[Rfam]
RNA: Archaeal small subunit ribosomal RNA, nucleotides 889 to 1467
RNA sequence: UGGCGGGGGAGCACCACAAGGGGUGAAGCCUGCGGUUUAAUUGGAGUCAACGCCCGGAACCUUACCAGGGGUGACGGCAGGAUGAAGGUCAGGCUAAAGACCUUACCUGACAAGCCGAGAGGAGGUGCAUGGCCGUCGCCAGCUCGUGCUGUGAAGUGUCCUGUUAAGUCAGGCAACGAGCGAGACCCUCGCUGCCAGUUGCUUCCCCACUCCGAAAGGGGUGGGGAGGAAACUGGCAGGACCGCCGCCGAUAAGGCGGAGGAAGGAGGGGGCUACGGCAGGUCAGUAUGCCCCGAAACCCCUGGGCCACACGCGGGCUGCAAUGGUGGGGACAAUGGGAUCCGAACCCGAAAGGGGGAGGUAAUCCCGAAACCCCACCGUAGUUGGGAUCGAGGGCUGCAACCCGCCCUCGUGAACCUGGAAUCCCUAGUAAUCGCGGGUCACCAUCCCGCGGUGAAUACGUCCCCGCUCCUUGCACACACCGCCCGUCGCUCCACCCGAGUGGGCCCCCGGCGAGGUGACAUCCUGCGUGGUGUCAUCGAACCGGGGGUCCGCGAGGGGGGAGAAGUCGUAACAAGG
Number, nucleotide and partner (000 for none) at each position: 001u479002g478003g476004c475005g474006g000007g473008g472009g471010a470011g469012c468013a000014c000015c000016a463017c462018a000019a000020g427021g426022g425023g424024u423025g321026a000027a319028g318029c317030c316031u315032g314033c313034g312035g310036u309037u000038u000039a000040a000041u056042u000043g054044g053045a000046g000047u000048c000049a000050a000051c000052g000053c044054c043055c000056g041057g000058a000059a000060c000061c000062u000063u000064a000065c305066c304067a303068g302069g301070g300071g299072u000073g000074a000075c117076g116077g115078c114079a000080g111081g000082a000083u000084g000085a000086a000087g107088g106089u105090c000091a103092g102093g101094c000095u000096a000097a000098a000099g000100a000101c093102c092103u091104u000105a089106c088107c087108u000109g000110a000111c080112a000113a000114g078115c077116c076117g075118a000119g000120a000121g294122g293123a000124g292125g291126u290127g289128c000129a000130u288131g287132g283133c282134c281135g279136u278137c277138g276139c000140c000141a000142g181143c180144u179145c178146g177147u176148g157149c156150u155151g000152u000153g000154a000155a150156g149157u148158g000159u000160c173161c172162u171163g170164u000165u000166a000167a000168g000169u000170c163171a162172g161173g160174c000175a000176a147177c146178g145179a144180g143181c142182g000183a000184g000185a000186c000187c271188c270189u269190c268191g000192c239193u238194g237195c236196c235197a234198g233199u000200u000201g000202c228203u227204u000205c000206c226207c225208c224209a222210c221211u220212c219213c000214g000215a000216a000217a000218g000219g212220g211221g210222u209223g000224g208225g207226g206227a203228g202229g000230a000231a000232a000233c198234u197235g196236g195237c194238a193239g192240g000241a000242c262243c261244g000245c259246c258247g257248c256249c255250g000251a000252u000253a000254a000255g249256g248257c247258g246259g245260a000261g243262g242263a000264a000265g000266g000267a000268g190269g189270g188271g187272g000273c000274u000275a000276c138277g137278g136279c135280a000281g134282g133283u132284c000285a000286g000287u131288a130289u127290g126291c125292c124293c122294c121295g000296a000297a000298a000299c071300c070301c069302c068303u067304g066305g065306g000307c000308c000309a036310c035311a000312c034313g033314c032315g031316g030317g029318c028319u027320g000321c025322a000323a000324u000325g379326g378327u377328g376329g375330g374331g373332a000333c000334a000335a000336u000337g368338g367339g366340a000341u000342c361343c360344g000345a000346a000347c356348c355349c354350g000351a000352a000353a000354g349355g348356g347357g000358g000359a000360g343361g342362u000363a000364a000365u000366c339367c338368c337369g000370a000371a000372a000373c331374c330375c329376c328377a327378c326379c325380g000381u000382a000383g000384u000385u000386g417387g000388g000389a000390u000391c412392g411393a410394g409395g408396g407397c406398u000399g000400c000401a000402a000403c000404c000405c000406g397407c396408c395409c394410u393411c392412g391413u000414g000415a000416a000417c386418c000419u000420g000421g000422a000423a024424u023425c022426c021427c020428u000429a000430g000431u000432a000433a455434u454435c453436g452437c451438g450439g449440g448441u000442c000443a000444c000445c000446a000447u000448c440449c439450c438451g437452c436453g435454g434455u433456g000457a000458a000459u000460a000461c000462g017463u016464c000465c000466c000467c000468g012469c011470u010471c009472c008473u007474u005475g004476c003477a000478c002479a001480c000481a000482c578483c000484g575485c000486c000487c571488g570489u000490c568491g000492c565493u564494c563495c562496a000497c560498c559499c558500g000501a000502g555503u554504g553505g552506g551507c550508c549509c548510c547511c546512g545513g544514c000515g000516a000517g540518g539519u538520g537521a536522c535523a534524u533525c532526c000527u000528g000529c000530g000531u000532g525533g524534u523535g522536u521537c520538a519539u518540c517541g000542a000543a000544c513545c512546g511547g510548g509549g508550g507551u506552c505553c504554g503555c502556g000557a000558g499559g498560g497561g000562g495563g494564a493565g492566a000567a000568g490569u000570c488571g487572u000573a000574a000575c484576a000577a000578g482579g000